[Rfam]
RNA: Bacterial large subunit ribosomal RNA, nucleotides 2054 to 2641
RNA sequence: GGCGUGAUUGGACGGAAAGACCCCAUGAAGCUUUACUGUAGCUUAAUAUUGGGAAAUUUUAUUACUUGUAGAGCAUAGGUAGGAGACUUUGAAGUAUACUCGCUAGGGUAUAUGGAGUCAUCGUUGGAAUACUACCCUUGUGAUAAGAUUUCUCUAACCUGCAGCCAUGAAUCUGGCUGGGGAACAGUGUUAGGUGGGCAGUUUGACUGGGGCGGUCGCCUCCCAAAAGGUAACGGAGGCGCGCAACGGUACCCUCAGCACGGUUGGAAAUCGUGUAUAGAGUGUAAUGGUAUAAGGGUGCUUGACUGUGAGACUUACAAGUCGAACAGGUAGGAAACUAGGUCAUAGUGAUCCGGUGGCUCAGAAUGGAAUGGCCAUCGCUCAACGGAUAAAAGCUACUCUGGGGAUAACAGGCUGAUAGUGCCCAAGAGUUCAUAUCGACGGCACUGUUUGGCACCUCGAUGUCGACUCAUCUCAUCCUGGAGCUGAAGCAGGUUCCAAGGGUUCGGCUGUUCGCCGAUUAAAGAGAUACGUGAGUUGGGUUCAAACCGUCGUGAGACAGGUUGGUCCCUAUCUGUCAUGCCCGUA
Number, nucleotide and partner (000 for none) at each position: 001g584002g583003c582004g581005u580006g579007a578008u577009u000010g576011g575012a574013c000014g571015g570016a000017a000018a000019g000020a000021c000022c405023c404024c403025a402026u000027g401028a400029a397030g396031c395032u394033u393034u000035a202036c201037u200038g199039u000040a000041g000042c194043u193044u192045a191046a190047u189048a188049u000050u000051g154052g153053g152054a151055a150056a149057u148058u147059u146060u145061a144062u143063u142064a141065c140066u000067u000068g137069u000070a000071g000072a000073g000074c000075a000076u000077a000078g136079g135080u134081a133082g132083g000084a000085g119086a118087c117088u000089u000090u000091g000092a000093a000094g113095u112096a111097u110098a109099c108100u107101c106102g000103c000104u000105a000106g101107g100108g099109u098110a097111u096112a095113u094114g000115g000116a000117g087118u086119c085120a000121u000122c000123g000124u000125u000126g000127g000128a000129a000130u000131a000132c082133u081134a080135c079136c078137c068138u000139u000140g065141u064142g063143a062144u061145a060146a059147g058148a057149u056150u055151u054152c053153u052154c051155u000156a000157a000158c182159c181160u180161g000162c179163a178164g177165c176166c175167a174168u000169g000170a000171a000172u000173c000174u167175g166176g165177c164178u163179g162180g160181g159182g158183a000184a000185c000186a000187g000188u048189g047190u046191u045192a044193g043194g042195u000196g000197g000198g000199c038200a037201g036202u035203u000204u000205g217206a216207c215208u214209g000210g000211g000212g000213c000214g208215g207216u206217c205218g240219c239220c238221u237222c236223c235224c000225a000226a000227a000228a000229g000230g000231u000232a000233a000234c000235g223236g222237a221238g220239g219240c218241g386242c000243g343244c342245a000246a000247c000248g000249g301250u300251a299252c298253c297254c296255u281256c280257a000258g276259c275260a274261c273262g272263g271264u000265u000266g000267g000268a000269a000270a000271u263272c262273g261274u260275g259276u258277a000278u000279a000280g256281a255282g291283u290284g000285u000286a000287a000288u000289g000290g283291u282292a000293u000294a000295a000296g254297g253298g252299u251300g250301c249302u000303u000304g000305a000306c329307u328308g327309u326310g000311a000312g323313a322314c321315u000316u000317a000318c000319a000320a000321g314322u313323c312324g000325a000326a309327c308328a307329g306330g000331u340332a339333g338334g000335a000336a000337a000338c333339u332340a331341g000342g244343u243344c000345a000346u000347a000348g000349u000350g000351a000352u000353c000354c380355g379356g378357u377358g376359g375360c374361u000362c373363a372364g000365a000366a000367u000368g000369g000370a000371a000372u363373g362374g360375c359376c358377a357378u356379c355380g354381c000382u000383c000384a000385a000386c241387g000388g000389a000390u000391a000392a000393a033394a032395g031396c030397u029398a000399c000400u028401c027402u025403g024404g023405g022406g000407a000408u000409a000410a000411c000412a000413g000414g455415c454416u453417g000418a452419u449420a448421g447422u446423g445424c444425c443426c000427a000428a000429g439430a438431g000432u000433u000434c000435a000436u000437a000438u430439c429440g000441a000442c000443g425444g424445c423446a422447c421448u420449g419450u000451u000452u418453g416454g415455c414456a000457c000458c000459u000460c000461g000462a000463u000464g000465u000466c541467g539468a538469c537470u536471c533472a530473u529474c528475u527476c526477a000478u000479c504480c503481u000482g499483g498484a497485g496486c495487u494488g000489a000490a000491g000492c000493a000494g487495g486496u485497u484498c483499c482500a000501a000502g000503g480504g479505u000506u520507c519508g518509g517510c516511u000512g000513u000514u000515c000516g510517c509518c508519g507520a506521u000522u000523a000524a000525a000526g476527a475528g474529a473530u472531a000532c000533g471534u000535g000536a470537g469538u468539u467540g000541g466542g000543u000544u000545c000546a000547a565548a564549c563550c562551g560552u559553c558554g000555u000556g000557a000558g553559a552560c551561a000562g550563g549564u548565u547566g000567g000568u000569c000570c015571c014572u000573a000574u012575c011576u010577g008578u007579c006580a005581u004582g003583c002584c001585c000586g000587u000588a000